[Rfam]
RNA sequence: UAGGAAAUAGAACACUCUUUGAGUUGCUGCAAAGAAUGUGGACACACUCUUGAGAAUGUUGAAGUUGAAGCUUAUGAGAAAAGACAGGUCUUUGAUAUUC
Numbered sequence: 001u002a003g004g005a006a007a008u009a010g011a012a013c014a015c016u017c018u019u020u021g022a023g024u025u026g027c028u029g030c031a032a033a034g035a036a037u038g039u040g041g042a043c044a045c046a047c048u049c050u051u052g053a054g055a056a057u058g059u060u061g062a063a064g065u066u067g068a069a070g071c072u073u074a075u076g077a078g079a080a081a082a083g084a085c086a087g088g089u090c091u092u093u094g095a096u097a098u099u100c
Base pairs, nucleotide, nucleotide: 003048004047013038014037016035017034018033019032020031021030054100055099056098057097058096059095062092063091064090
A member of the RNA family "Pyrrolysine insertion sequence transposase 1" from Methanosarcina acetivorans, 100 nucleotides long. Rfam classes the family as a cis-regulatory element. On this family, see Theil Have et al., BMC Bioinformatics 2013: "Effects of using coding potential, sequence conservation and mRNA structure conservation for predicting pyrroly-sine containing genes". Rfam links the family to the GO term pyrrolysine incorporation. The base pairs follow the family's consensus structure, which was predicted with WAR.